RNA: Small nucleolar RNA U49
Organism: Salvia splendens
RNA sequence: CUCCAAUGAGGAAGAAAUCCCAAGAAUAGGAAGUGCCGUAUGACACUUUAAAACGCAGCGUUUAG
Number, nucleotide and partner (000 for none) at each position: 001c000002u000003c000004c000005a000006a000007u000008g000009a000010g000011g000012a000013a000014g059015a000016a000017a000018u000019c000020c000021c000022a000023a000024g000025a000026a000027u000028a000029g000030g049031a048032a047033g046034u045035g044036c000037c000038g000039u000040a000041u000042g000043a000044c035045a034046c033047u032048u031049u030050a000051a000052a000053a000054c000055g000056c000057a000058g000059c014060g000061u000062u000063u000064a000065g000